A member of the RNA family "S. aureus tsr24 small RNA" from Staphylococcus haemolyticus, 221 nucleotides long. The base pairs follow the family's consensus structure, which was predicted with RNAfold. The organism belongs to Staphylococcus haemolyticus, within Bacteria. A search with the family's covariance model found it, with a score of 99 bits.

RNA sequence: AAUUUUUAUAAAGGACCUCGUUAAUUUAGUUUAGUGAUGUUUAUUAAAUUAUACGAAAGUCUUUAUUUUUUAAAAGUAUUACAAUGUAAAAUUACAUAUAAAUACAAAGUUUUUUGGCGAGACUCUUGAGGGAACAGGACAAGCUGAAGACUACAGGCUGAAGCUGUCCCCUAAGAAAGCGAGCCAACAAUACGAAGUAUUGUAAAUAAAGAAGCCAGUAA
Numbered sequence: 001a002a003u004u005u006u007u008a009u010a011a012a013g014g015a016c017c018u019c020g021u022u023a024a025u026u027u028a029g030u031u032u033a034g035u036g037a038u039g040u041u042u043a044u045u046a047a048a049u050u051a052u053a054c055g056a057a058a059g060u061c062u063u064u065a066u067u068u069u070u071u072a073a074a075a076g077u078a079u080u081a082c083a084a085u086g087u088a089a090a091a092u093u094a095c096a097u098a099u100a101a102a103u104a105c106a107a108a109g110u111u112u113u114u115u116g117g118c119g120a121g122a123c124u125c126u127u128g129a130g131g132g133a134a135c136a137g138g139a140c141a142a143g144c145u146g147a148a149g150a151c152u153a154c155a156g157g158c159u160g161a162a163g164c165u166g167u168c169c170c171c172u173a174a175g176a177a178a179g180c181g182a183g184c185c186a187a188c189a190a191u192a193c194g195a196a197g198u199a200u201u202g203u204a205a206a207u208a209a210a211g212a213a214g215c216c217a218g219u220a221a
Base pairs, nucleotide, nucleotide: 005206006205007204008203009202010201011200018037019036020035021034022033023032024031039061040058041057042056044055045051046050077199078198079197080196082194086095087094088093097106099104109193110192112190113189114187115186116185117184118183124176125175126174127173129172130171131170132169134167135166137164142159143158144157145156